RNA sequence: UCCGCUGUCGCCAAUGAUGGAGCCUUUGUUGAAUUGACAACCCAUGAUUGAAUUCAACAUUUCGUCACUACCGCUGAGGUGACUAGCAAU
Numbered sequence: 001u002c003c004g005c006u007g008u009c010g011c012c013a014a015u016g017a018u019g020g021a022g023c024c025u026u027u028g029u030u031g032a033a034u035u036g037a038c039a040a041c042c043c044a045u046g047a048u049u050g051a052a053u054u055c056a057a058c059a060u061u062u063c064g065u066c067a068c069u070a071c072c073g074c075u076g077a078g079g080u081g082a083c084u085a086g087c088a089a090u
Base pairs, nucleotide, nucleotide: 004087005086006085007083008082009081010080011079012078
RNA: Small nucleolar RNA SNORD70
Organism: Leptobrachium leishanense